[Rfam]
RNA sequence: CUCGGUUACGGUGAUAUGGUCCCGUCGACAGUGAUGGGAAAAAUAGUUGGAGGUAUCUGUUCUCUCUCUGGUGUGUUGGUCAUCGCCCUCCCUGUGCCAGUCAUUGUCAGCAAU
Numbered sequence: 001c002u003c004g005g006u007u008a009c010g011g012u013g014a015u016a017u018g019g020u021c022c023c024g025u026c027g028a029c030a031g032u033g034a035u036g037g038g039a040a041a042a043a044u045a046g047u048u049g050g051a052g053g054u055a056u057c058u059g060u061u062c063u064c065u066c067u068c069u070g071g072u073g074u075g076u077u078g079g080u081c082a083u084c085g086c087c088c089u090c091c092c093u094g095u096g097c098c099a100g101u102c103a104u105u106g107u108c109a110g111c112a113a114u
Stems, first nucleotide, its partner, number of pairs: 002113001004111001008107004013102003018097001021094001037077002040074001049063003
The family of this 114-nucleotide RNA sequence from Strongylus vulgaris is "Potassium channel RNA editing signal". This family represents a group of sequences related to the human potassium channel Kv1.1 hairpin element which directs the efficient modification of an adenosine to inosine by an adenosine deaminase acting on RNA (ADAR). Lineage of the source: Eukaryota > Chromadorea > Rhabditina > Strongylidae > Strongylus. The base pairs follow the family's consensus structure, which is taken from published work.